A member of the RNA family "Group I catalytic intron" from Coemansia spiralis, 292 nucleotides long. The organism belongs to Coemansia, within Eukaryota. The match comes from Rfam's covariance-model search (59 bits). The family has 12 seed sequences and 5,602 matches in Rfam 15.1. Rfam describes the family as follows. Group I catalytic introns are large self-splicing ribozymes. They catalyse their own excision from mRNA, tRNA and rRNA precursors in a wide range of organisms. The core secondary structure consists of 9 paired regions (P1-P9). These fold to essentially two domains - the P4-P6 domain (formed from the stacking of P5, P4, P6 and P6a helices) and the P3-P9 domain (formed from the P8, P3, P7 and P9 helices).
RNA sequence: UCUUAUAGCUCUAAUGUAGGGCUAUCUUAAAUCUUAUGAUUUAAAUAUUAACUUGGCUAUAUGCUGGGAACUCUUAAAGUUUUAAGUACAAGAUAUUAUAAAAUAUCUGUAAUAAUCUUAAAAAUACAACAAUAGACAAUCAGCAGAUAACCAACGACUUUAUAAAUAGACGCACGCCCAUAAAUGAUGGGUGACUGUUCCGUAGUCUAGUAGGAAUCUCAGAGACUACGCGCCAAGUAUGCAAUAUAAAAUAUUGUAUAAAGAUAUAGUCCAAAAUAAUAAAAUUAUUUUU
Dot-bracket structure: ....(((((((((...)))))))))...(..........)..........(((((.(....((((((....(((...........................................................)))...))))))((...((....(((............................................)))...)..)...))...[.[[[[[...).))))).((((((((...))))))))........]]]]]]........((((....))))